The family of this 33-nucleotide sequence is "S4-Bacteroidia ribosomal protein leader". Its Rfam clan is "Ribosomal Protein S4 Leader clan". For this family Rfam cites "Discovery of 20 novel ribosomal leader candidates in bacteria and archaea" (Eckert and Weinberg, BMC Microbiol, 2020). Pairs were carried over by alignment from the consensus structure, which is taken from published work.
RNA sequence: GGUUACACAACAACUUCUCUGUAAUCGCGGCAG
Number, nucleotide and partner (000 for none) at each position: 001g026002g025003u024004u023005a022006c021007a020008c000009a000010a000011c000012a000013a000014c000015u000016u000017c000018u000019c000020u007021g006022u005023a004024a003025u002026c001027g000028c000029g000030g000031c000032a000033g000